Small nucleolar RNA Z247: a 139-nucleotide sequence from Castanea mollissima. The family has 8 seed sequences and 7,071 matches in Rfam 15.1. The family's consensus secondary structure was predicted with PFOLD. The literature on the family includes a 2003 paper in Nucleic Acids Res by Chen et al., "The high diversity of snoRNAs in plants: identification and comparative study of 120 snoRNA genes from Oryza sativa". A search with the family's covariance model found it, with a score of 48 bits. The organism belongs to Castanea, within Eukaryota.
RNA sequence: CCGCUCAACGAUUUUGAAAUUGUUUCAUAUCUCCUUGCGAGUUUGGGUCCUGAGUAUGACCCUUUUGUUACAUCUGUCACCACCCGCGUCGAUCCUCUCUCCAUUGACGAGCUUUAUGGUCAUCUCCUUGCACAUGAGA
Dot-bracket structure: ...((((................................................................................((((((.........))))))..........................)))).